This 169-nucleotide sequence from Lachnospiraceae bacterium MD308 belongs to the Rfam family "Lysine riboswitch aptamer". Rfam describes the family as follows. Riboswitches are metabolite binding domains within certain messenger RNAs that serve as precision sensors for their corresponding targets. NCBI's taxonomy places the organism under Bacteria, Bacillota, Clostridia, Lachnospirales, Lachnospiraceae. Gene Ontology term of the family: lysine biosynthetic process. On this family, see Mandal et al., Cell 2003: "Riboswitches Control Fundamental Biochemical Pathways in Bacillus subtilis and Other Bacteria".
RNA sequence: AGACAUGAUAGAGGCGCGGAUUUCAUCAGUACUUGAUGGGCGACAGUCGGGGGACUGCCCACGGGGAAAGGGAGAGCCGCCGAAGAGAUUGUUUCUUCCCAAGGGCAAUCUCUGGGACGCAGGCAGAAUAUGCUGCGGACUGUCACAUCAGUGGAGCGCUAUCGGUUCA
Numbered sequence: 001a002g003a004c005a006u007g008a009u010a011g012a013g014g015c016g017c018g019g020a021u022u023u024c025a026u027c028a029g030u031a032c033u034u035g036a037u038g039g040g041c042g043a044c045a046g047u048c049g050g051g052g053g054a055c056u057g058c059c060c061a062c063g064g065g066g067a068a069a070g071g072g073a074g075a076g077c078c079g080c081c082g083a084a085g086a087g088a089u090u091g092u093u094u095c096u097u098c099c100c101a102a103g104g105g106c107a108a109u110c111u112c113u114g115g116g117a118c119g120c121a122g123g124c125a126g127a128a129u130a131u132g133c134u135g136c137g138g139a140c141u142g143u144c145a146c147a148u149c150a151g152u153g154g155a156g157c158g159c160u161a162u163c164g165g166u167u168c169a
Base pairs, nucleotide, nucleotide: 006164007163008162009161010160011159016080017079018078019077021075022074023073024072032065033064034063035062037061038060039059040058041057042056084113085112086111087110088109089108090107091106092105093104094103114141115140118137119136120135121134122133143154144153145152146151